A member of the RNA family "DUF805b RNA", 37 nucleotides long. The family is grouped with related families in Rfam's "DUF805 clan". It is one of the family's seed sequences.

RNA sequence: GCGGAGGAACCCGAAAAUCCGUAAAACAGAGUAGGGA
Number, nucleotide and partner (000 for none) at each position: 001g000002c021003g020004g019005a018006g000007g000008a000009a000010c036011c035012c034013g000014a000015a000016a000017a000018u005019c004020c003021g002022u000023a000024a000025a000026a000027c000028a000029g000030a000031g000032u000033a000034g012035g011036g010037a000